[Rfam]
RNA: Small nucleolar RNA SNORD26
RNA sequence: CUACGGUGAUGAUUUUAAGAAUUGAACUCUCUCUUUCUGAUGAAUUAAUGGAGAAAGCACAAAAAAUUCUGAGUAGC
Numbered sequence: 001c002u003a004c005g006g007u008g009a010u011g012a013u014u015u016u017a018a019g020a021a022u023u024g025a026a027c028u029c030u031c032u033c034u035u036u037c038u039g040a041u042g043a044a045u046u047a048a049u050g051g052a053g054a055a056a057g058c059a060c061a062a063a064a065a066a067u068u069c070u071g072a073g074u075a076g077c
Base pairs, nucleotide, nucleotide: 001076002075003074004073